[Rfam]
RNA sequence: GCAGUCCUCUGCUUGGUAAGGUUUAGCAGACCGCCGAGACCCCGAGUCAUGAGCAUUGCAUCGUGAGGUGUCGAGUUAAGCGUUGACAGGGGAAACCAUAGGCUGAGUAUUGAGCUGCGCUUAUGUUUUAGAAUAAGUAUCUUUAAGAGUGCUGAUCCGGUUGGGUGUAGGAGAAGGCAAUACGUUAGUUGACGUUAUACCGCGAGUAGGUAAGGCAAGUUAACUAGCGGCUCUUUGUAGUCGUAGACCU
Numbered sequence: 001g002c003a004g005u006c007c008u009c010u011g012c013u014u015g016g017u018a019a020g021g022u023u024u025a026g027c028a029g030a031c032c033g034c035c036g037a038g039a040c041c042c043c044g045a046g047u048c049a050u051g052a053g054c055a056u057u058g059c060a061u062c063g064u065g066a067g068g069u070g071u072c073g074a075g076u077u078a079a080g081c082g083u084u085g086a087c088a089g090g091g092g093a094a095a096c097c098a099u100a101g102g103c104u105g106a107g108u109a110u111u112g113a114g115c116u117g118c119g120c121u122u123a124u125g126u127u128u129u130a131g132a133a134u135a136a137g138u139a140u141c142u143u144u145a146a147g148a149g150u151g152c153u154g155a156u157c158c159g160g161u162u163g164g165g166u167g168u169a170g171g172a173g174a175a176g177g178c179a180a181u182a183c184g185u186u187a188g189u190u191g192a193c194g195u196u197a198u199a200c201c202g203c204g205a206g207u208a209g210g211u212a213a214g215g216c217a218a219g220u221u222a223a224c225u226a227g228c229g230g231c232u233c234u235u236u237g238u239a240g241u242c243g244u245a246g247a248c249c250u
Stems, first nucleotide, its partner, number of pairs: 012038005020032004040092004046087004050082002052077003056073001058071005112242001114241006145235006151178003156172003183229011
Record summary
This 250-nucleotide RNA sequence from Osedax symbiont Rs1 belongs to the Rfam family "Group II catalytic intron D1-D4-6". About the family: Group II introns are found in rRNA, tRNA and mRNA of organelles in fungi, plants and protists, and also in mRNA in bacteria. NCBI's taxonomy places the organism under Bacteria, Pseudomonadati, Pseudomonadota, Oceanospirillales, Oceanospirillaceae. A reference for the family is Bonen and Vogel (2001), "The ins and outs of group II introns", Trends Genet. It scores 137 bits against the family's covariance model. Rfam 15.1 lists 1,617 matches to the family in 661 species.